[Rfam]
The family of this 167-nucleotide RNA sequence from Cyphomyrmex costatus is "R2 RNA element". It is annotated as a cis-regulatory element. About the family: This family represents the 3' UTR region of the R2 retrotransposable element. The source organism's lineage runs through Eukaryota, Hexapoda, Neoptera, Myrmicinae and Cyphomyrmex. The base pairs follow the family's consensus structure, which is taken from published work.
RNA sequence: AAAUUUCAAGUAGGUACAUUAAAAUCGUUUAAUGUUGUUUAUUGUAAACCAUAGUUAUCUCGAUGGGGUUUUAGUUGGUAGGCGCCGCUCUUUGUGGGCGGUGAAUCCAACACUACCCGGGGGAUAGCUUCCCCGGGGGUCUUUGGAAGAUUUCCCCAUCGUUAAAA
Dot-bracket structure: ..................((((......................................((((((((.....(((((....((((((((.....))))))))...))))).((.((((..............))))))..............))))))))))))..
Numbered sequence: 001a002a003a004u005u006u007c008a009a010g011u012a013g014g015u016a017c018a019u020u021a022a023a024a025u026c027g028u029u030u031a032a033u034g035u036u037g038u039u040u041a042u043u044g045u046a047a048a049c050c051a052u053a054g055u056u057a058u059c060u061c062g063a064u065g066g067g068g069u070u071u072u073a074g075u076u077g078g079u080a081g082g083c084g085c086c087g088c089u090c091u092u093u094g095u096g097g098g099c100g101g102u103g104a105a106u107c108c109a110a111c112a113c114u115a116c117c118c119g120g121g122g123g124a125u126a127g128c129u130u131c132c133c134c135g136g137g138g139g140u141c142u143u144u145g146g147a148a149g150a151u152u153u154c155c156c157c158a159u160c161g162u163u164a165a166a167a
Stems, first nucleotide, its partner, number of pairs: 019165004061161008074111005083103008113139002116137004